[Rfam]
RNA: U1A polyadenylation inhibition element (PIE)
Organism: Labrus bergylta
RNA sequence: UCAUAAAGCAUUGCACCCAGAGUCUGCUCUGUCAGACACAGUACCUGGAGCUUUUUCUUUAUUUUUUAUUAAAACU
Numbered sequence: 001u002c003a004u005a006a007a008g009c010a011u012u013g014c015a016c017c018c019a020g021a022g023u024c025u026g027c028u029c030u031g032u033c034a035g036a037c038a039c040a041g042u043a044c045c046u047g048g049a050g051c052u053u054u055u056u057c058u059u060u061a062u063u064u065u066u067u068a069u070u071a072a073a074a075c076u
Base pairs, nucleotide, nucleotide: 005054006053007052008051009050017048018047019046020045022037023036024035025034026033